Plastid-ycf2 5UTR RNA: a 75-nucleotide RNA from Trifolium subterraneum. Rfam describes the family as follows. Plastid ycf2 is a non-coding RNA (ncRNA) recognised in plastids. It was found in the prime untranslated region (5UTR) of ycf2 genes, it presents a tRNA-like motif which suggests it can be involved in mRNA maturation, particularly involved in defining the precise 5' end of the transcript. It scores 78 bits against the family's covariance model. The family has 204 seed sequences and 3,521 matches in Rfam 15.1. For this family Rfam cites "Retrograde signaling in plants: A critical review focusing on the GUN pathway and beyond" (Richter et al., Plant Commun, 2023). Taxonomically the source falls in Trifolium (Eukaryota, Magnoliopsida, Gunneridae, Trifolieae).
RNA sequence: AUGCAACCAGUAGGAAUCGAACAUACGCCUUCACCAAUUAUGAGUUGGGUGGUUUAACCAUUUAGCCAUGGAUGC
Numbered sequence: 001a002u003g004c005a006a007c008c009a010g011u012a013g014g015a016a017u018c019g020a021a022c023a024u025a026c027g028c029c030u031u032c033a034c035c036a037a038u039u040a041u042g043a044g045u046u047g048g049g050u051g052g053u054u055u056a057a058c059c060a061u062u063u064a065g066c067c068a069u070g071g072a073u074g075c
Stems, first nucleotide, its partner, number of pairs: 003075003007071002010026003014022001040069003044066008